[Rfam]
Background:
Shown here is a 104-nucleotide RNA from Saccharothrix variisporea, a member of the family "Glycine riboswitch aptamer". Rfam describes the family as follows. This family represents the bacterial glycine riboswitch. Glycine riboswitches usually consist of two metabolite-binding aptamers domains with similar structures in tandem. The aptamers cooperatively bind glycine to regulate the expression of downstream genes. In Bacillus subtilis, this riboswitch is found upstream of the gcvT operon which controls glycine degradation. Lineage of the source: Bacteria > Bacillati > Actinomycetes > Pseudonocardiaceae > Saccharothrix.
RNA sequence: CAACUCUGGAAAGCAGGCGCCCGGCGCCUCGCCCACGGUGCAAGCCGCGCCCCCGCCGACGUGCGGGACCGCGGCGAAGCUCUCAGGCUCAUGACAGAGGGGGA
Numbered sequence: 001c002a003a004c005u006c007u008g009g010a011a012a013g014c015a016g017g018c019g020c021c022c023g024g025c026g027c028c029u030c031g032c033c034c035a036c037g038g039u040g041c042a043a044g045c046c047g048c049g050c051c052c053c054c055g056c057c058g059a060c061g062u063g064c065g066g067g068a069c070c071g072c073g074g075c076g077a078a079g080c081u082c083u084c085a086g087g088c089u090c091a092u093g094a095c096a097g098a099g100g101g102g103g104a
Stems, first nucleotide, its partner, number of pairs: 001102001004099005015029004031088003035083001038082001040080001044075006